[Rfam]
RNA sequence: CUUGUGGGGAAUGUUGGCUGGCUCGAGGUAUCCACAUCUUAAUUCCUCUCCGGCGAUCGAGCCGGCUCGGGCGUGUGGAAGCGUCGGACCAGGCUUCAUUCCUCGCAAG
Numbered sequence: 001c002u003u004g005u006g007g008g009g010a011a012u013g014u015u016g017g018c019u020g021g022c023u024c025g026a027g028g029u030a031u032c033c034a035c036a037u038c039u040u041a042a043u044u045c046c047u048c049u050c051c052g053g054c055g056a057u058c059g060a061g062c063c064g065g066c067u068c069g070g071g072c073g074u075g076u077g078g079a080a081g082c083g084u085c086g087g088a089c090c091a092g093g094c095u096u097c098a099u100u101c102c103u104c105g106c107a108a109g
Stems, first nucleotide, its partner, number of pairs: 001109013016094001018092004024086003
Shown here is a 109-nucleotide sequence, a member of the family "mir-166 microRNA precursor family". The sequence is in the family's curated seed alignment. On this family, see Reinhart et al., Genes Dev 2002: "MicroRNAs in plants". About the family: This family represents the plant microRNA (miRNA) precursor mir-166. The base pairs follow the family's consensus structure, which was predicted with PFOLD.